[Rfam]
RNA sequence: UUGCCUUAAACUAAUGAGUAAGGAAAACAAAGCGAGCGGUGAGAGCCGGUCGCCGCGCCAUUGCAAAAACUGUGCGCAGGAAUUUAUGGAGGGGUAAUAGGCUGGCCCGAGCGUUGACGCUGCUUACUUUCGCAGAACUCGCUUGGGCGGGCCUCCCA
Numbered sequence: 001u002u003g004c005c006u007u008a009a010a011c012u013a014a015u016g017a018g019u020a021a022g023g024a025a026a027a028c029a030a031a032g033c034g035a036g037c038g039g040u041g042a043g044a045g046c047c048g049g050u051c052g053c054c055g056c057g058c059c060a061u062u063g064c065a066a067a068a069a070c071u072g073u074g075c076g077c078a079g080g081a082a083u084u085u086a087u088g089g090a091g092g093g094g095u096a097a098u099a100g101g102c103u104g105g106c107c108c109g110a111g112c113g114u115u116g117a118c119g120c121u122g123c124u125u126a127c128u129u130u131c132g133c134a135g136a137a138c139u140c141g142c143u144u145g146g147g148c149g150g151g152c153c154u155c156c157c158a
Base pairs, nucleotide, nucleotide: 004023005022006021007020008019032053033052034051035050037048038047039046054076055075056074057073058072092157093156094155100153101152102151103150105148106147108145109144111142112141113140120135121134122133123132
RNA: U12 minor spliceosomal RNA